[Rfam]
RNA sequence: AAAUCAAAGCAGAAGCACCCGCUUCUCGCCUUAACAAUAAAAAUUGUUGGGCUAGAUAACGUUUAGUUUUGAUAUUUUUAUCAAACACUAUUUUGGUGCGGGGUCUUUAUAUAAUAAUAAAGAACUCGUUUUUUUCUGUGU
Numbered sequence: 001a002a003a004u005c006a007a008a009g010c011a012g013a014a015g016c017a018c019c020c021g022c023u024u025c026u027c028g029c030c031u032u033a034a035c036a037a038u039a040a041a042a043a044u045u046g047u048u049g050g051g052c053u054a055g056a057u058a059a060c061g062u063u064u065a066g067u068u069u070u071g072a073u074a075u076u077u078u079u080a081u082c083a084a085a086c087a088c089u090a091u092u093u094u095g096g097u098g099c100g101g102g103g104u105c106u107u108u109a110u111a112u113a114a115u116a117a118u119a120a121a122g123a124a125c126u127c128g129u130u131u132u133u134u135u136c137u138g139u140g141u
Stems, first nucleotide, its partner, number of pairs: 011026006028052003034047005099128004104123007

Shown here is a 141-nucleotide RNA sequence from Vagococcus teuberi, a member of the family "Ribosomal protein L20 leader". The match comes from Rfam's covariance-model search (63 bits). For this family Rfam cites "Diverse mechanisms for regulating ribosomal protein synthesis in Escherichia coli" (Zengel and Lindahl, Prog Nucleic Acid Res Mol Biol, 1994). Rfam describes the family as follows. This family is a putative r-protein leader autoregulatory structure found in B. subtilis and other low-GC Gram-positive bacteria. It is located in the 5' untranslated regions of mRNAs encoding initiation factor 3 followed by ribosomal proteins L35 and L20 (infC-rpmI-rplT). A Rho-independent transcription terminator structure that is probably involved in regulation is included at the 3' end. Rfam classes the family as a cis-regulatory leader.